[Rfam]
RNA sequence: GUCCAGUGCGGUCACUCAUUCUCGUAGUAAGCAGGCGCAUCGGCAACGUGGGGUGACACCCCGCGCGAUAGCUGGUGCGCCGAACAUGAGGUCCCGAACGGGGCCUUUUUUAUUGCCUUUU
Numbered sequence: 001g002u003c004c005a006g007u008g009c010g011g012u013c014a015c016u017c018a019u020u021c022u023c024g025u026a027g028u029a030a031g032c033a034g035g036c037g038c039a040u041c042g043g044c045a046a047c048g049u050g051g052g053g054u055g056a057c058a059c060c061c062c063g064c065g066c067g068a069u070a071g072c073u074g075g076u077g078c079g080c081c082g083a084a085c086a087u088g089a090g091g092u093c094c095c096g097a098a099c100g101g102g103g104c105c106u107u108u109u110u111u112a113u114u115g116c117c118u119u120u121u
Stems, first nucleotide, its partner, number of pairs: 007029001009027001031116003034081010047065007086107001089106007
The record is a 121-nucleotide RNA from Devosia chinhatensis, which matches "Rhizobiales sRNA Atu_C8" in Rfam. For this family Rfam cites "Deep sequencing uncovers numerous small RNAs on all four replicons of the plant pathogen Agrobacterium tumefaciens" (Wilms et al., RNA Biol, 2012). The match comes from Rfam's covariance-model search (56 bits).